[Rfam]
RNA sequence: UGACGGGGGCCCGCACAAGCGGUGGAGCAUGUGGUUUAAUUCGAUGCAACGCGAAGAACCUUACCGGCCCUUGACAUCCUCGGAGCCCUCUGGAGACGGAGGGGUGCCUUCGGGAACCGAGUGACAGGUGCUGCAUGGCUGUCGUCAGCUCGUGUCGUGAGAUGUUGGGUUAAGUCCCGCAACGAGCGCAACCCUUGUCCUUAGUUGCCAUCAGUUUAGCUGGGCACUCUAGGGAGACUGCCGGUGACAAACCGGAGGAAGGCGGGGACGACGUCAAGUCAUCAUGGCCCUUAUGGGCCGGGCUACACACGUGCUACAAUGGCGGGUACAGAGGGUUGCGAAGCCGCGAGGUGGAGCUAAUCUCUUAAAGCCCGUCCUAGUCCGGAUCGGAGUCUGCAACUCGACUCCGUGAAGCAGGAAUCGCUAGUAAUCGCAGAUCAGCAAUGCUGCGGUGAAUACGUUCCCGGGCCUUGUACACACCGCCCGUCACACCAUGGGAGUCGGCUGCACCAGAAGUGCGUAGUCUAACCCUUCGGGGAGGACGCGUACCACGGUGUGGUCGGCGACUGGGGUGAAGUCGUAACAAGG
Numbered sequence: 001u002g003a004c005g006g007g008g009g010c011c012c013g014c015a016c017a018a019g020c021g022g023u024g025g026a027g028c029a030u031g032u033g034g035u036u037u038a039a040u041u042c043g044a045u046g047c048a049a050c051g052c053g054a055a056g057a058a059c060c061u062u063a064c065c066g067g068c069c070c071u072u073g074a075c076a077u078c079c080u081c082g083g084a085g086c087c088c089u090c091u092g093g094a095g096a097c098g099g100a101g102g103g104g105u106g107c108c109u110u111c112g113g114g115a116a117c118c119g120a121g122u123g124a125c126a127g128g129u130g131c132u133g134c135a136u137g138g139c140u141g142u143c144g145u146c147a148g149c150u151c152g153u154g155u156c157g158u159g160a161g162a163u164g165u166u167g168g169g170u171u172a173a174g175u176c177c178c179g180c181a182a183c184g185a186g187c188g189c190a191a192c193c194c195u196u197g198u199c200c201u202u203a204g205u206u207g208c209c210a211u212c213a214g215u216u217u218a219g220c221u222g223g224g225c226a227c228u229c230u231a232g233g234g235a236g237a238c239u240g241c242c243g244g245u246g247a248c249a250a251a252c253c254g255g256a257g258g259a260a261g262g263c264g265g266g267g268a269c270g271a272c273g274u275c276a277a278g279u280c281a282u283c284a285u286g287g288c289c290c291u292u293a294u295g296g297g298c299c300g301g302g303c304u305a306c307a308c309a310c311g312u313g314c315u316a317c318a319a320u321g322g323c324g325g326g327u328a329c330a331g332a333g334g335g336u337u338g339c340g341a342a343g344c345c346g347c348g349a350g351g352u353g354g355a356g357c358u359a360a361u362c363u364c365u366u367a368a369a370g371c372c373c374g375u376c377c378u379a380g381u382c383c384g385g386a387u388c389g390g391a392g393u394c395u396g397c398a399a400c401u402c403g404a405c406u407c408c409g410u411g412a413a414g415c416a417g418g419a420a421u422c423g424c425u426a427g428u429a430a431u432c433g434c435a436g437a438u439c440a441g442c443a444a445u446g447c448u449g450c451g452g453u454g455a456a457u458a459c460g461u462u463c464c465c466g467g468g469c470c471u472u473g474u475a476c477a478c479a480c481c482g483c484c485c486g487u488c489a490c491a492c493c494a495u496g497g498g499a500g501u502c503g504g505c506u507g508c509a510c511c512a513g514a515a516g517u518g519c520g521u522a523g524u525c526u527a528a529c530c531c532u533u534c535g536g537g538g539a540g541g542a543c544g545c546g547u548a549c550c551a552c553g554g555u556g557u558g559g560u561c562g563g564c565g566a567c568u569g570g571g572g573u574g575a576a577g578u579c580g581u582a583a584c585a586a587g588g
Stems, first nucleotide, its partner, number of pairs: 001477002003474003007471007015461002019424005024317001026315008034306002040055004064301007077124002079121005086103007105116001107114002127290002130288004136284002138279003141275001143273002148187006154163003166179004193267004198235007208224002212222003238258002241255005321376007333364003338357002343352003383414001388409007430453007480587001482584001485580002490574004495569003500564012516549006523543004529538002

Bacterial small subunit ribosomal RNA: a 588-nucleotide part of an RNA from Halorhodospira halochloris.
The family is grouped with related families in Rfam's "SSU clan".
The family's consensus secondary structure is taken from published work.
Rfam 15.1 lists 42,628 matches to the family in 10,626 species.
The source organism's lineage runs through Bacteria, Gammaproteobacteria, Chromatiales, Ectothiorhodospiraceae and Halorhodospira.